[Rfam]
RNA sequence: UUAAACGCUGUGAUUAGGAGUAGUAAGGAUCAUUUAUUGUUAAGAGAGCUGUUGGUUGGUGUAAAACAGUCAAUAAAUCCCUGAACUCACCUAGGAGUGGUAAGGCUGAGGUUGUCUUAACCUAAGUUUUAACGGUUUACCCCGUAAUCGGUUUAGAGUGGGUUUGUUUAUGUAAGUAUCAAACCAAAAAGAGUGGUACCACGAAGGUAAAACCUGUCGUCUCUUAU
Dot-bracket structure: ......((......((((.......(((........(((........((((((...........)))))))))......))).......))))...))..(((((((.................))))))).(((......)))................((((((.............))))))....((((.......((((............))))))))...

The record is a 227-nucleotide RNA sequence from Cytobacillus solani, which matches "T-box leader" in Rfam. Its family is annotated with tRNA binding in the Gene Ontology. A search with the family's covariance model found it, with a score of 132 bits. Rfam describes the family as follows. Uncharged tRNA acts as the effector for transcription antitermination of genes in the T-box leader family. The literature on the family includes a 1994 paper in J Bacteriol by Grundy et al., "Interaction between the acceptor end of tRNA and the T box stimulates antitermination in the Bacillus subtilis tyrS gene: a new role for the discriminator base". Pairs were carried over by alignment from the consensus structure, which is taken from published work. Rfam 15.1 lists 19,395 matches to the family in 1,923 species. By type it is a cis-regulatory leader.